RNA sequence: GUCGGGAGUGGACCAAUACAAGACCCGCAAGGGGAAUACGUCCGGCCUUUUCUACAUUGGGGUUUCUUAGCUCCCGACGCCUAGCU
Numbered sequence: 001g002u003c004g005g006g007a008g009u010g011g012a013c014c015a016a017u018a019c020a021a022g023a024c025c026c027g028c029a030a031g032g033g034g035a036a037u038a039c040g041u042c043c044g045g046c047c048u049u050u051u052c053u054a055c056a057u058u059g060g061g062g063u064u065u066c067u068u069a070g071c072u073c074c075c076g077a078c079g080c081c082u083a084g085c086u
Base pairs, nucleotide, nucleotide: 001078002077003076004075005074006073007072008071010043011042012041013040015037024033025032026031044064045063046062047061048060049059

Rfam assigns this 86-nucleotide RNA from Pseudomonas coronafaciens to the family "sRNA-Xcc1". Rfam's curators put it in the seed alignment. The literature on the family includes a 2011 paper in RNA Biol by Chen et al., "sRNA-Xcc1, an integron-encoded transposon- and plasmid-transferred trans-acting sRNA, is under the positive control of the key virulence regulators HrpG and HrpX of Xanthomonas campestris pathovar campestris".